The record is a 75-nucleotide sequence from Hibiscus syriacus, which matches "Small nucleolar RNA R21" in Rfam. Rfam links the family to the GO terms nucleolus and RNA processing. The source organism's lineage runs through Eukaryota, Spermatophyta, eudicotyledons, rosids and Hibiscus. Pairs were carried over by alignment from the consensus structure, which was predicted with PFOLD.
RNA sequence: CAUCCCAAUGAUGAUGGAUAUGUAUUGUUAAAAGUAGUGCCUGAUCGGCUGAUGAUAAAUACAUGCUGAUGGAUG
Numbered sequence: 001c002a003u004c005c006c007a008a009u010g011a012u013g014a015u016g017g018a019u020a021u022g023u024a025u026u027g028u029u030a031a032a033a034g035u036a037g038u039g040c041c042u043g044a045u046c047g048g049c050u051g052a053u054g055a056u057a058a059a060u061a062c063a064u065g066c067u068g069a070u071g072g073a074u075g
Stems, first nucleotide, its partner, number of pairs: 001075005